[Rfam]
RNA sequence: GAAAGUAAAGGAGCAAUAAUCAACUUCUUGUUUUAUCAAGAGGGUUGACAUUGCUCCUUU
Number, nucleotide and partner (000 for none) at each position: 001g000002a000003a000004a000005g000006u000007a060008a059009a058010g057011g056012a055013g054014c053015a052016a051017u050018a000019a000020u000021c000022a045023a000024c000025u042026u041027c040028u039029u038030g037031u000032u000033u000034u000035a000036u000037c030038a029039a028040g027041a026042g025043g000044g000045u022046u000047g000048a000049c000050a017051u016052u015053g014054c013055u012056c011057c010058u009059u008060u007
Description
This 60-nucleotide RNA sequence belongs to the Rfam family "Plastid-psbA-4 3UTR RNA". Rfam classes the family as a cis-regulatory element. Plastid psbA-4 is a non-coding RNA (ncRNA) present in plastids. It was identified in inverted repeat sequences in the 3 prime untranslate region (3UTR) of photosystem II quinone-binding protein (psbA). The family is grouped with related families in Rfam's "Plastid-psbA 3UTR RNA clan". It is one of the family's seed sequences.